[Rfam]
RNA sequence: CACUUAAAAUCUGAUCAGCUGAAAUUGAACACUGACACGAACUUUGUUCGUGAGUCUCUCAAAUUUUCGCAACACGAUGAUGAAUCGAAAGAAACAUCUUCGG
Numbered sequence: 001c002a003c004u005u006a007a008a009a010u011c012u013g014a015u016c017a018g019c020u021g022a023a024a025u026u027g028a029a030c031a032c033u034g035a036c037a038c039g040a041a042c043u044u045u046g047u048u049c050g051u052g053a054g055u056c057u058c059u060c061a062a063a064u065u066u067u068c069g070c071a072a073c074a075c076g077a078u079g080a081u082g083a084a085u086c087g088a089a090a091g092a093a094a095c096a097u098c099u100u101c102g103g
Stems, first nucleotide, its partner, number of pairs: 018070002021068004026063001030052003034049002037044001075102003079098004
A member of the RNA family "Salmonella enterica Typhi npcRNA 44" from chlamydia-associated clinical sample 591-S, 103 nucleotides long. For this family Rfam cites "Experimental identification and characterization of 97 novel npcRNA candidates in Salmonella enterica serovar Typhi" (Chinni et al., Nucleic Acids Res, 2010). Rfam's curators put it in the seed alignment. The family's consensus secondary structure was predicted with CMfinder.